[Rfam]
RNA sequence: UAGCGUCGCUCUGGAAAGUGUCCCCGCGUGUCGGGGGCCGCCGAAGGGGUAACCUUGCCGCCAUCCGAUGGCGCCGGGGGAAAGCUCUCAGGUUUCCGUGACAGAGGGGGCACC
Numbered sequence: 001u002a003g004c005g006u007c008g009c010u011c012u013g014g015a016a017a018g019u020g021u022c023c024c025c026g027c028g029u030g031u032c033g034g035g036g037g038c039c040g041c042c043g044a045a046g047g048g049g050u051a052a053c054c055u056u057g058c059c060g061c062c063a064u065c066c067g068a069u070g071g072c073g074c075c076g077g078g079g080g081a082a083a084g085c086u087c088u089c090a091g092g093u094u095u096c097c098g099u100g101a102c103a104g105a106g107g108g109g110g111c112a113c114c
Stems, first nucleotide, its partner, number of pairs: 006109002009106005020038004040093003043089002047087003053080004
RNA: Glycine riboswitch aptamer